[Rfam]
RNA sequence: ACCUCUAAUGAUGAUCACAAAAUUACUUUCGUUCUUCCAAGAUGCCCCAUGCGGAAAAUUUUUUGGAGACCUGAACUGAAGAGGC
Numbered sequence: 001a002c003c004u005c006u007a008a009u010g011a012u013g014a015u016c017a018c019a020a021a022a023u024u025a026c027u028u029u030c031g032u033u034c035u036u037c038c039a040a041g042a043u044g045c046c047c048c049a050u051g052c053g054g055a056a057a058a059u060u061u062u063u064u065g066g067a068g069a070c071c072u073g074a075a076c077u078g079a080a081g082a083g084g085c
Stems, first nucleotide, its partner, number of pairs: 003083004
A member of the RNA family "Small nucleolar RNA Z159/U59" from Rhamnella rubrinervis, 85 nucleotides long. The base pairs follow the family's consensus structure, which was predicted with PFOLD. On this family, see Chen et al., Nucleic Acids Res 2003: "The high diversity of snoRNAs in plants: identification and comparative study of 120 snoRNA genes from Oryza sativa". The source organism's lineage runs through Eukaryota, Mesangiospermae, rosids, Rhamneae and Rhamnella. Gene Ontology terms of the family: RNA processing and nucleolus. A search with the family's covariance model found it, with a score of 63 bits.